[Rfam]
RNA: Flavo-1 RNA
Organism: Pedobacter cryotolerans
RNA sequence: UUAUAGCCCAGAUUGAAGUGAAAAGCUUUUUCAAUGUAAGGCUGAGGGCUUGCCUCCAGUGGCUGGUGCCGAAGCCAAAUUGAAAAACUUGAAACGUAAAGCGGAAAGACC
Numbered sequence: 001u002u003a004u005a006g007c008c009c010a011g012a013u014u015g016a017a018g019u020g021a022a023a024a025g026c027u028u029u030u031u032c033a034a035u036g037u038a039a040g041g042c043u044g045a046g047g048g049c050u051u052g053c054c055u056c057c058a059g060u061g062g063c064u065g066g067u068g069c070c071g072a073a074g075c076c077a078a079a080u081u082g083a084a085a086a087a088c089u090u091g092a093a094a095c096g097u098a099a100a101g102c103g104g105a106a107a108g109a110c111c
Base pairs, nucleotide, nucleotide: 009103011102013100014099018095019094023090024089025088029085030084031083032082033081034080035079